[Rfam]
RNA sequence: UGGCGAAGGUCCCAGCAGAGGGGGUAGCUCCAUAACGAGGCCUCUCUAACAGUUGUUUCUACACUUUCCUUCGCAAAGUGAUUGGCCGAAUCGUAGGAUGCCCAAACUGCUUCCUAUUUUGGUGCAUCUUGAACCCUCGGCUAUAUUUAU
Numbered sequence: 001u002g003g004c005g006a007a008g009g010u011c012c013c014a015g016c017a018g019a020g021g022g023g024g025u026a027g028c029u030c031c032a033u034a035a036c037g038a039g040g041c042c043u044c045u046c047u048a049a050c051a052g053u054u055g056u057u058u059c060u061a062c063a064c065u066u067u068c069c070u071u072c073g074c075a076a077a078g079u080g081a082u083u084g085g086c087c088g089a090a091u092c093g094u095a096g097g098a099u100g101c102c103c104a105a106a107c108u109g110c111u112u113c114c115u116a117u118u119u120u121g122g123u124g125c126a127u128c129u130u131g132a133a134c135c136c137u138c139g140g141c142u143a144u145a146u147u148u149a150u
Stems, first nucleotide, its partner, number of pairs: 003074007011020001013018001022046003028039003085141005097128002100125002102122005